Description: This 81-nucleotide RNA sequence from Aurantiacibacter atlanticus belongs to the Rfam family "Makes More Granules Regulator RNA (mmgR)".
RNA sequence: GAUAGAUGCACUUCGGUGCAUCUCCUCCCUGAACCUUGGCCGCCUCUUGCGUAAUGCGAGAGGCGGUUUUUUUUGGCCGCU
Numbered sequence: 001g002a003u004a005g006a007u008g009c010a011c012u013u014c015g016g017u018g019c020a021u022c023u024c025c026u027c028c029c030u031g032a033a034c035c036u037u038g039g040c041c042g043c044c045u046c047u048u049g050c051g052u053a054a055u056g057c058g059a060g061a062g063g064c065g066g067u068u069u070u071u072u073u074u075g076g077c078c079g080c081u
Base pairs, nucleotide, nucleotide: 008019009018010017011016040066041065042064043063044062045061046060047059048058049057050056